[Rfam]
RNA sequence: AAAGGAGCAAUACCGCCCUCUUGAUAGAACAAGAAGGUGAUUAUUGCUCCUUUAUCU
Numbered sequence: 001a002a003a004g005g006a007g008c009a010a011u012a013c014c015g016c017c018c019u020c021u022u023g024a025u026a027g028a029a030c031a032a033g034a035a036g037g038u039g040a041u042u043a044u045u046g047c048u049c050c051u052u053u054a055u056c057u
Stems, first nucleotide, its partner, number of pairs: 001053012014039001019034005